A member of the RNA family "MIR473 microRNA precursor family" from Manihot esculenta, 79 nucleotides long.
The organism belongs to Manihot, within Eukaryota.
The family's consensus secondary structure was predicted with WAR.

RNA sequence: AUUGUUCACUCUCCCUAAAGGCUUCAACCAAUUUGUGGACUACACAAAGCUUGAUGCCUUAAGGGAGAGUGGAUAAAAG
Numbered sequence: 001a002u003u004g005u006u007c008a009c010u011c012u013c014c015c016u017a018a019a020g021g022c023u024u025c026a027a028c029c030a031a032u033u034u035g036u037g038g039a040c041u042a043c044a045c046a047a048a049g050c051u052u053g054a055u056g057c058c059u060u061a062a063g064g065g066a067g068a069g070u071g072g073a074u075a076a077a078a079g
Stems, first nucleotide, its partner, number of pairs: 006072011018060005024054002